RNA sequence: UAGAAAUUUGUUUUAAUCAAACCUGUUAUGAUUAAAGCAAAUCUCAUUUGCCGACUAGGGUAACUCGCCGAAAUUGACUCCGAGUACUCUAGUUUUUUU
Numbered sequence: 001u002a003g004a005a006a007u008u009u010g011u012u013u014u015a016a017u018c019a020a021a022c023c024u025g026u027u028a029u030g031a032u033u034a035a036a037g038c039a040a041a042u043c044u045c046a047u048u049u050g051c052c053g054a055c056u057a058g059g060g061u062a063a064c065u066c067g068c069c070g071a072a073a074u075u076g077a078c079u080c081c082g083a084g085u086a087c088u089c090u091a092g093u094u095u096u097u098u099u
Stems, first nucleotide, its partner, number of pairs: 002044002006042014053094009063085005070080002
23S methyl RNA motif: a 99-nucleotide RNA sequence from Pseudolactococcus hodotermopsidis. The literature on the family includes a 2007 paper in Nucleic Acids Res by Weinberg et al., "Identification of 22 candidate structured RNAs in bacteria using the CMfinder comparative genomics pipeline".